[Rfam]
The record is an 81-nucleotide sequence from Geotrypetes seraphini, which matches "mir-219 microRNA precursor family" in Rfam. The match comes from Rfam's covariance-model search (66 bits).
RNA sequence: CUCGCUACUGAUUGUCCAAACGCAAUUCUUGUGCCAUUUGACAGCAGCAGUCAAGAAUUGUGGGGGGACAUCGCUAGCUGC
Numbered sequence: 001c002u003c004g005c006u007a008c009u010g011a012u013u014g015u016c017c018a019a020a021c022g023c024a025a026u027u028c029u030u031g032u033g034c035c036a037u038u039u040g041a042c043a044g045c046a047g048c049a050g051u052c053a054a055g056a057a058u059u060g061u062g063g064g065g066g067g068a069c070a071u072c073g074c075u076a077g078c079u080g081c
Base pairs, nucleotide, nucleotide: 002080004078005077006076007075009073010072011071012070014069015068016067017066021062022061023060024059025058026057027056028055029054030053031052